[Rfam]
RNA sequence: AUAAAGAUUCUGCCGAAUCCGCACUUUAGUCCCAUCAUUGCGGUACGGGGGAACCAAUCAGUGCACUAAUUUAUAAGUGUACAGGGGUGAAUCGCUUUUCGGACUUGGGGGAGAACCGGAAGCGUAGGGCGAACCUUUCGACCGAACCCUUCAGCUUACCCCGGAGGCAGCGAAAGGAGGAAGA
Numbered sequence: 001a002u003a004a005a006g007a008u009u010c011u012g013c014c015g016a017a018u019c020c021g022c023a024c025u026u027u028a029g030u031c032c033c034a035u036c037a038u039u040g041c042g043g044u045a046c047g048g049g050g051g052a053a054c055c056a057a058u059c060a061g062u063g064c065a066c067u068a069a070u071u072u073a074u075a076a077g078u079g080u081a082c083a084g085g086g087g088u089g090a091a092u093c094g095c096u097u098u099u100c101g102g103a104c105u106u107g108g109g110g111g112a113g114a115a116c117c118g119g120a121a122g123c124g125u126a127g128g129g130c131g132a133a134c135c136u137u138u139c140g141a142c143c144g145a146a147c148c149c150u151u152c153a154g155c156u157u158a159c160c161c162c163g164g165a166g167g168c169a170g171c172g173a174a175a176g177g178a179g180g181a182a183g184a
Stems, first nucleotide, its partner, number of pairs: 011169004019043005046163005055084001085149003093124007127143002130140001